[Rfam]
RNA sequence: UGUGGCUGCAUAGCGCCUGGGCUUGCCUGGAAUUGGGCAAGUUGACGAGGAUUUGGGAAUAUCGAAAUAUCGGCGGAUUUCCCAACGGCAUCACACCGUCAUGGCUUUACAAAACCCUUGAGUGAUCAAGGGGACAAAAGAGGCCUUGUGAAGCU
Numbered sequence: 001u002g003u004g005g006c007u008g009c010a011u012a013g014c015g016c017c018u019g020g021g022c023u024u025g026c027c028u029g030g031a032a033u034u035g036g037g038c039a040a041g042u043u044g045a046c047g048a049g050g051a052u053u054u055g056g057g058a059a060u061a062u063c064g065a066a067a068u069a070u071c072g073g074c075g076g077a078u079u080u081c082c083c084a085a086c087g088g089c090a091u092c093a094c095a096c097c098g099u100c101a102u103g104g105c106u107u108u109a110c111a112a113a114a115c116c117c118u119u120g121a122g123u124g125a126u127c128a129a130g131g132g133g134a135c136a137a138a139a140g141a142g143g144c145c146u147u148g149u150g151a152a153g154c155u
Stems, first nucleotide, its partner, number of pairs: 020043008029034001053085005062073004086098003103145005115132007
Shown here is a 155-nucleotide RNA from Peptoclostridium litorale, a member of the family "glmS glucosamine-6-phosphate activated ribozyme aptamer". The base pairs follow the family's consensus structure, which is taken from published work. It is annotated as a riboswitch.